The record is a 305-nucleotide RNA sequence from Phytophthora lilii, which matches "Metazoan signal recognition particle RNA" in Rfam. The family has 91 seed sequences and 383,523 matches in Rfam 15.1.
[Rfam]
RNA sequence: GCCGGGUUGGGUGGCGCCAACUUGUAACGGAUACGCUUCUGUCCGGGUAGUAAGGUGUGAGGGCUGUGGCAGGCGUCGCAGGGUCACUGUUCACAGGAUGUCGAUGGCACGUCCAUCUCAAACCAGGAGUUGACAUUGGGGCACUUCCGUAAGGGAGUGCACCGAGGUCACUAAGGAAGGGAGUGCCGCCCCAGGCUGGCUAACAGAGCAGGGAAAAUCCCUCGCUCUUGGUAGUGGGAGGAUAUCGCGCCAGAAUCCUGAUGUGGAAUCGUUACGCUGUACACCGCAGUGCGAUCACCUUGCGA
Numbered sequence: 001g002c003c004g005g006g007u008u009g010g011g012u013g014g015c016g017c018c019a020a021c022u023u024g025u026a027a028c029g030g031a032u033a034c035g036c037u038u039c040u041g042u043c044c045g046g047g048u049a050g051u052a053a054g055g056u057g058u059g060a061g062g063g064c065u066g067u068g069g070c071a072g073g074c075g076u077c078g079c080a081g082g083g084u085c086a087c088u089g090u091u092c093a094c095a096g097g098a099u100g101u102c103g104a105u106g107g108c109a110c111g112u113c114c115a116u117c118u119c120a121a122a123c124c125a126g127g128a129g130u131u132g133a134c135a136u137u138g139g140g141g142c143a144c145u146u147c148c149g150u151a152a153g154g155g156a157g158u159g160c161a162c163c164g165a166g167g168u169c170a171c172u173a174a175g176g177a178a179g180g181g182a183g184u185g186c187c188g189c190c191c192c193a194g195g196c197u198g199g200c201u202a203a204c205a206g207a208g209c210a211g212g213g214a215a216a217a218u219c220c221c222u223c224g225c226u227c228u229u230g231g232u233a234g235u236g237g238g239a240g241g242a243u244a245u246c247g248c249g250c251c252a253g254a255a256u257c258c259u260g261a262u263g264u265g266g267a268a269u270c271g272u273u274a275c276g277c278u279g280u281a282c283a284c285c286g287c288a289g290u291g292c293g294a295u296c297a298c299c300u301u302g303c304g305a
Base pairs, nucleotide, nucleotide: 001048002047003046004023005022006021007020008019009018010017028045029044030043031042032041050303051302052301053300054299055298056297057296063290064289065288066287067286068285069284073280074279075278077276078275080273086272087271089269090268091267092266095259096258097257098256099255101253105252106251107250108249110247111246113241114240116239117238118237119236120235122232123231124230125229126228127227128226129225130224131170132169133168134167136165137164138163139162141160142159143158144157145156146155147154148153171175178222179221180220181219182218189213190212191211196206197205198204